Description:
Shown here is a 168-nucleotide RNA sequence from Halobacillus salinus, a member of the family "glmS glucosamine-6-phosphate activated ribozyme aptamer". About the family: This entry contains a glucosamine-6-phosphate activated ribozyme that is found in the mRNA for GlmS. GlmS is an enzyme that uses fructose-6-phosphate and glutamine to generate glucosamine-6-phosphate. The match comes from Rfam's covariance-model search (120 bits). The family's RNA type in Rfam is riboswitch.
Nucleotides: 168
Stems, first nucleotide, its partner, number of pairs: 020047008029038001056087005065076004088107006112158007126143007
Number, partner (000 for none) and nucleotide at each position: 001000c002000u003000u004000u005000c006000u007000a008000u009000a010000a011000a012000a013000g014000c015000g016000c017000c018000a019000g020047g021046a022045c023044u024043g025042u026041g027040c028000g029038g030000a031000u032000c033000g034000a035000g036000u037000u038029u039000u040027g041026c042025a043024c044023a045022g046021u047020u048000g049000a050000c051000g052000a053000g054000g055000a056087g057086g058085a059084g060083g061000u062000u063000c064000a065076u066075c067074g068073a069000g070000c071000a072000u073068u074067c075066g076065g077000c078000g079000g080000a081000u082000g083060c084059c085058u086057c087056c088107c089106g090105g091104u092103u093102g094000u095000a096000a097000c098000a099000c100000u101000u102093c103092a104091a105090c106089c107088g108000c109000u110000c111000g112158u113157u114156u115155u116154c117153a118152u119000g120000c121000c122000a123000a124000a125000c126143c127142g128141a129140a130139g131138a132137g133000g134000c135000g136000a137132c138131u139130c140129u141128u142127c143126g144000a145000c146000c147000a148000a149000a150000c151000c152118a153117u154116g155115a156114g157113a158112a159000c160000a161000a162000a163000g164000u165000g166000u167000c168000c